[Rfam]
RNA sequence: CACAGUGUUUGGCAAUGGUAGAACUCACUCUGGUGGGAUGGACGGAUCCGGUGGUUCUGGACUUGCCAAAAACUGGC
Numbered sequence: 001c002a003c004a005g006u007g008u009u010u011g012g013c014a015a016u017g018g019u020a021g022a023a024c025u026c027a028c029u030c031u032g033g034u035g036g037g038a039u040g041g042a043c044g045g046a047u048c049c050g051g052u053g054g055u056u057c058u059g060g061a062c063u064u065g066c067c068a069a070a071a072a073c074u075g076g077c
Stems, first nucleotide, its partner, number of pairs: 003075004009069007019059006028053001030051004

The record is a 77-nucleotide RNA sequence from Betta splendens, which matches "mir-182 microRNA precursor family" in Rfam. The family's consensus secondary structure was predicted with RNAalifold. Clan: mir-182 clan.